This 155-nucleotide RNA sequence from Paenibacillus sp. FSL H8-0548 belongs to the Rfam family "c-di-AMP riboswitch aptamer (ydaO/yuaA leader)". About the family: This family represents a conserved RNA structure found upstream of the ydaO and yuaA genes in Bacillus subtilis and related genes in other bacteria. The organism belongs to Paenibacillus, within Bacteria.
[Rfam]
RNA sequence: AUAUGAUAAACGCUUAAUCCUCUUCACGGAGGAGCGGGGGAACCAUCGAAGCUUAUAAUACUGCUUCUGGGGUGAAUUCUUUCUUACUUAGAAAGAACGGGUACUCUCAAACCCGAAUCCGACAGCUAACCUCGUCAGCGCUUGGGAGAGAAUAC
Numbered sequence: 001a002u003a004u005g006a007u008a009a010a011c012g013c014u015u016a017a018u019c020c021u022c023u024u025c026a027c028g029g030a031g032g033a034g035c036g037g038g039g040g041a042a043c044c045a046u047c048g049a050a051g052c053u054u055a056u057a058a059u060a061c062u063g064c065u066u067c068u069g070g071g072g073u074g075a076a077u078u079c080u081u082u083c084u085u086a087c088u089u090a091g092a093a094a095g096a097a098c099g100g101g102u103a104c105u106c107u108c109a110a111a112c113c114c115g116a117a118u119c120c121g122a123c124a125g126c127u128a129a130c131c132u133c134g135u136c137a138g139c140g141c142u143u144g145g146g147a148g149a150g151a152a153u154a155c
Base pairs, nucleotide, nucleotide: 011140012139013138014137018033019032020031021030022029034135035134036133037132038131039130044069045068070120071119072118078096079095080094081093099114100113101112102111